Shown here is a 35-nucleotide RNA sequence, a member of the family "DUF805b RNA". The family's RNA type in Rfam is cis-regulatory element. The family is grouped with related families in Rfam's "DUF805 clan". It is one of the family's seed sequences.
RNA sequence: ACGGAGGAAGCCGAAAAGCCAAAAAAGAGUAGGUA
Dot-bracket structure: ..[[.....(((......]]...........))).